[Rfam]
RNA: SL2 RNA
RNA sequence: GGUUUUAACCCAGUUUACCAAGGUACGCUUGGGAUUCGACCUGUGAGGACACUCGCAGUGCCGAGAACUUAAAUUUUUGGAAUCGUCAACUCGGGGUGAUCCGGGAUGACAAA
Numbered sequence: 001g002g003u004u005u006u007a008a009c010c011c012a013g014u015u016u017a018c019c020a021a022g023g024u025a026c027g028c029u030u031g032g033g034a035u036u037c038g039a040c041c042u043g044u045g046a047g048g049a050c051a052c053u054c055g056c057a058g059u060g061c062c063g064a065g066a067a068c069u070u071a072a073a074u075u076u077u078u079g080g081a082a083u084c085g086u087c088a089a090c091u092c093g094g095g096g097u098g099a100u101c102c103g104g105g106a107u108g109a110c111a112a113a
Stems, first nucleotide, its partner, number of pairs: 007036002009032002013028002016025003037063002040060001041058007090108001095102002